[Rfam]
RNA sequence: UUCAACAGAAAGAGCUUCUCUCGAGACAAGGAUGGAUACGAUCAAGGUGAAACGACUCGCCGGGUUCAAUAAUGGACUUGUCGAAGAUGGCUUGGAAUGCUGCUGGAACUAGGUCUUAUUGGAGUUUGGGCAACCAGUUAGAUGUCACCUUUCGUUGGGAACGGAGUCGGGACCCAUCUUGAGUUGGAGUCAAAGCCUAGCGCUUGUUCGGCUCUGAUCACUGCGAACUAAGUGGCAUUGAUACGGGAAGCCUAUCGAUGUGGUAAACACUUUUUGGAUACUAUGUUCUAAGGACAGGCCGGUUGGGGGGUAGUCCUAGGCUGUCCUCUACUCUAAGUAGAGGGCAGCCCC
Numbered sequence: 001u002u003c004a005a006c007a008g009a010a011a012g013a014g015c016u017u018c019u020c021u022c023g024a025g026a027c028a029a030g031g032a033u034g035g036a037u038a039c040g041a042u043c044a045a046g047g048u049g050a051a052a053c054g055a056c057u058c059g060c061c062g063g064g065u066u067c068a069a070u071a072a073u074g075g076a077c078u079u080g081u082c083g084a085a086g087a088u089g090g091c092u093u094g095g096a097a098u099g100c101u102g103c104u105g106g107a108a109c110u111a112g113g114u115c116u117u118a119u120u121g122g123a124g125u126u127u128g129g130g131c132a133a134c135c136a137g138u139u140a141g142a143u144g145u146c147a148c149c150u151u152u153c154g155u156u157g158g159g160a161a162c163g164g165a166g167u168c169g170g171g172a173c174c175c176a177u178c179u180u181g182a183g184u185u186g187g188a189g190u191c192a193a194a195g196c197c198u199a200g201c202g203c204u205u206g207u208u209c210g211g212c213u214c215u216g217a218u219c220a221c222u223g224c225g226a227a228c229u230a231a232g233u234g235g236c237a238u239u240g241a242u243a244c245g246g247g248a249a250g251c252c253u254a255u256c257g258a259u260g261u262g263g264u265a266a267a268c269a270c271u272u273u274u275u276g277g278a279u280a281c282u283a284u285g286u287u288c289u290a291a292g293g294a295c296a297g298g299c300c301g302g303u304u305g306g307g308g309g310g311u312a313g314u315c316c317u318a319g320g321c322u323g324u325c326c327u328c329u330a331c332u333c334u335a336a337g338u339a340g341a342g343g344g345c346a347g348c349c350c351c
Stems, first nucleotide, its partner, number of pairs: 171191003174187003193205004
Dot-bracket structure: ..........................................................................................................................................................................((((((........))).))).((((.....))))..................................................................................................................................................
RNA: Ascomycota telomerase RNA, nucleotides 1199 to 1549